[Rfam]
RNA: msiK RNA
RNA sequence: CGGUGGCGUCACUUCACUACGGAUCGUCCGGCACGUACCUGCCGGUGAAGGAGUUCAGU
Numbered sequence: 001c002g003g004u005g006g007c008g009u010c011a012c013u014u015c016a017c018u019a020c021g022g023a024u025c026g027u028c029c030g031g032c033a034c035g036u037a038c039c040u041g042c043c044g045g046u047g048a049a050g051g052a053g054u055u056c057a058g059u
Base pairs, nucleotide, nucleotide: 010051012050013049014048015047016046028045029044030043031042032041033040